[Rfam]
RNA sequence: GUAGGCUAUGGGGACAUGGCCCCCAAGACGUAUGUAGGUAUGUUUGUGGGUGCAUUAUGUGCCCUCGCAGGUGUGUUGACGAUAGCUCUGCCGGUACCUGUCAUAGUGAGCAAC
Numbered sequence: 001g002u003a004g005g006c007u008a009u010g011g012g013g014a015c016a017u018g019g020c021c022c023c024c025a026a027g028a029c030g031u032a033u034g035u036a037g038g039u040a041u042g043u044u045u046g047u048g049g050g051u052g053c054a055u056u057a058u059g060u061g062c063c064c065u066c067g068c069a070g071g072u073g074u075g076u077u078g079a080c081g082a083u084a085g086c087u088c089u090g091c092c093g094g095u096a097c098c099u100g101u102c103a104u105a106g107u108g109a110g111c112a113a114c
Stems, first nucleotide, its partner, number of pairs: 001114002004111001007108003011104001013102004018097001021094001037077004049063003
RNA: Potassium channel RNA editing signal